[Rfam]
RNA sequence: GCAACCUGGCAUUCUCGCGCCAGAACCGCACCGUGUUCCUGUCGAUGCUAGGCAAUUCGUGGUUCUGGUUUUAUGGCGCGCUGAUGCUGUCGCAGUUCCCGGUGUACGCCAAGGACUACCUG
Numbered sequence: 001g002c003a004a005c006c007u008g009g010c011a012u013u014c015u016c017g018c019g020c021c022a023g024a025a026c027c028g029c030a031c032c033g034u035g036u037u038c039c040u041g042u043c044g045a046u047g048c049u050a051g052g053c054a055a056u057u058c059g060u061g062g063u064u065c066u067g068g069u070u071u072u073a074u075g076g077c078g079c080g081c082u083g084a085u086g087c088u089g090u091c092g093c094a095g096u097u098c099c100c101g102g103u104g105u106a107c108g109c110c111a112a113g114g115a116c117u118a119c120c121u122g
Stems, first nucleotide, its partner, number of pairs: 008049003012045002017042003022037002025034002051121002055117001057115002060112001062110001064104001067099002071095002074092005080087002
The family of this 122-nucleotide sequence from Massilia psychrophila is "Burkholderia RNA 11". It is annotated as a small RNA. On this family, see Ramos et al., Genomics 2013: "Experimental identification of small non-coding regulatory RNAs in the opportunistic human pathogen Burkholderia cenocepacia J2315". Co-purified with Hfq, expression confirmed by Northern blot. Rfam links the family to the GO term protein binding. The organism belongs to Massilia, within Bacteria. It scores 58 bits against the family's covariance model.